Shown here is a 75-nucleotide sequence from Molossus molossus, a member of the family "mir-9229 microRNA precursor family". Gene Ontology terms of the family: miRNA-mediated post-transcriptional gene silencing and RISC complex. The match comes from Rfam's covariance-model search (72 bits). Pairs were carried over by alignment from the consensus structure, which was predicted with RNAalifold. The organism belongs to Molossus, within Eukaryota.
[Rfam]
RNA sequence: GAGCCAACCCUGUGGAGCAAGACUUGCUUCAGUGGGGCUUGGUGCCCAUUGAGUCUGCCCCUUGAGUGUGUUUCU
Dot-bracket structure: (((.((..(.((.((.(((.(((.....((((((((((...)).)))))))))))))).)).)).)..)).))).